Background
Rfam assigns this 92-nucleotide RNA sequence from Nocardioides psychrotolerans to the family "ZMP/ZTP riboswitch aptamer (pfl RNA motif)". The family has 185 seed sequences and 3,295 matches in Rfam 15.1. Pairs were carried over by alignment from the consensus structure, which is taken from published work. Rfam links the family to the GO terms one-carbon metabolic process and regulation of purine nucleotide biosynthetic process. Lineage of the source: Bacteria > Bacillati > Actinomycetota > Nocardioidaceae > Nocardioides.
RNA sequence: CUGGGACCACACGACUGGCGCAGGUGGGUGGACCACCAGGGAGUGCCCCGUUCCGGGGAUCGGCGAGAGCAUCGAACGCCUGGGUGCCCUCA
Dot-bracket structure: ..(((....(((..(([[[[...((((.....))))..))..))))))....................(((((...]]]]..))))).....
Numbered sequence: 001c002u003g004g005g006a007c008c009a010c011a012c013g014a015c016u017g018g019c020g021c022a023g024g025u026g027g028g029u030g031g032a033c034c035a036c037c038a039g040g041g042a043g044u045g046c047c048c049c050g051u052u053c054c055g056g057g058g059a060u061c062g063g064c065g066a067g068a069g070c071a072u073c074g075a076a077c078g079c080c081u082g083g084g085u086g087c088c089c090u091c092a
Stems, first nucleotide, its partner, number of pairs: 003048003010045003015040002017080004024036004069087005